[Rfam]
RNA sequence: CUGUUCCUUUUUCCUAUGCAUAUACCUCUUUGACAUGCUGCUUUAAAGAGGCAUAGGGCAUGGGAAAAUGGGGCGG
Numbered sequence: 001c002u003g004u005u006c007c008u009u010u011u012u013c014c015u016a017u018g019c020a021u022a023u024a025c026c027u028c029u030u031u032g033a034c035a036u037g038c039u040g041c042u043u044u045a046a047a048g049a050g051g052c053a054u055a056g057g058g059c060a061u062g063g064g065a066a067a068a069u070g071g072g073g074c075g076g
Base pairs, nucleotide, nucleotide: 010067011066012065013064014063015062016061017060018059019058021055022054023053025051026050027049028048029047030046031045032044